[Rfam]
RNA sequence: UCAUGAGGUAGGAAAAUCCUUACUUGUUCCUCCUUUUGGAGGGCAGAUUAGAACAUGAUGAUUGGAGUUGCAUCAUGCAUGAUGAAUAUCUCUGAGUAAUCAGGACUUGCAACAUCCUGAUUACUCCUACUCUUCC
Numbered sequence: 001u002c003a004u005g006a007g008g009u010a011g012g013a014a015a016a017u018c019c020u021u022a023c024u025u026g027u028u029c030c031u032c033c034u035u036u037u038g039g040a041g042g043g044c045a046g047a048u049u050a051g052a053a054c055a056u057g058a059u060g061a062u063u064g065g066a067g068u069u070g071c072a073u074c075a076u077g078c079a080u081g082a083u084g085a086a087u088a089u090c091u092c093u094g095a096g097u098a099a100u101c102a103g104g105a106c107u108u109g110c111a112a113c114a115u116c117c118u119g120a121u122u123a124c125u126c127c128u129a130c131u132c133u134u135c136c
Stems, first nucleotide, its partner, number of pairs: 024046003028043006075091001077089001079087001080085001096124009
RNA: U8 small nucleolar RNA
Organism: Carlito syrichta